Selenocysteine transfer RNA: a 93-nucleotide RNA from Haloplasma contractile.
Rfam 15.1 lists 4,211 matches to the family in 3,344 species.

[Rfam]
RNA sequence: GGAAGCACUUACGUAACUGGUGUUCGUACAGGUCUUCAAAACCUUGUUGUGGGUGUAAAAGUCCAUAGGUGGGUUCGAUUCCCAUGUGCUUCC
Numbered sequence: 001g002g003a004a005g006c007a008c009u010u011a012c013g014u015a016a017c018u019g020g021u022g023u024u025c026g027u028a029c030a031g032g033u034c035u036u037c038a039a040a041a042c043c044u045u046g047u048u049g050u051g052g053g054u055g056u057a058a059a060a061g062u063c064c065a066u067a068g069g070u071g072g073g074u075u076c077g078a079u080u081c082c083c084a085u086g087u088g089c090u091u092c093c
Stems, first nucleotide, its partner, number of pairs: 001093008011027003015024003028047002030044004049066005070084004